[Rfam]
RNA sequence: UGUAUUCAUGGACUGUAUUCGACUGUAUUCACGACGUGAAAUAGGGAAUUACAUUAUUUUUAAAAUGGAAAGUAAAUCAACUAACAUAGUAGACUCCU
Number, nucleotide and partner (000 for none) at each position: 001u000002g097003u000004a095005u000006u000007c000008a000009u092010g000011g000012a090013c089014u088015g087016u086017a000018u084019u083020c000021g082022a000023c000024u079025g078026u000027a077028u076029u075030c000031a073032c072033g000034a000035c067036g066037u065038g060039a059040a058041a057042u056043a055044g054045g000046g000047a000048a000049u000050u000051a000052c000053a000054u044055u043056a042057u041058u040059u039060u038061u000062a000063a000064a000065a037066u036067g035068g000069a000070a000071a000072g032073u031074a000075a029076a028077u027078c025079a024080a000081c000082u021083a019084a018085c000086a016087u015088a014089g013090u012091a000092g009093a000094c000095u004096c000097c002098u000
RNA: MIR6152 microRNA precursor family